Record summary
Shown here is a 51-nucleotide RNA sequence, a member of the family "Glutamine riboswitch aptamer (glnA leader)".
RNA sequence: AACGUUUAUCCUGAAACGGACGGAAGUAGGCGAAUGCUGAAGAAACGCACU
Numbered sequence: 001a002a003c004g005u006u007u008a009u010c011c012u013g014a015a016a017c018g019g020a021c022g023g024a025a026g027u028a029g030g031c032g033a034a035u036g037c038u039g040a041a042g043a044a045a046c047g048c049a050c051u
Stems, first nucleotide, its partner, number of pairs: 003047005009020003023048001029038003